[Rfam]
RNA sequence: UUUUUCCACUAGAGGUGUCGAAAGACUGAGAGGGACGUGUGUGUCCCAACUCUUCGAACCUGACCUGGUUCAUACCAGCGUAGGGAAGUGGACGGUAUAUAUU
Numbered sequence: 001u002u003u004u005u006c007c008a009c010u011a012g013a014g015g016u017g018u019c020g021a022a023a024g025a026c027u028g029a030g031a032g033g034g035a036c037g038u039g040u041g042u043g044u045c046c047c048a049a050c051u052c053u054u055c056g057a058a059c060c061u062g063a064c065c066u067g068g069u070u071c072a073u074a075c076c077a078g079c080g081u082a083g084g085g086a087a088g089u090g091g092a093c094g095g096u097a098u099a100u101a102u103u
Stems, first nucleotide, its partner, number of pairs: 006091005011053004017026003033046005059084004065078004
RNA: TPP riboswitch aptamer (THI element)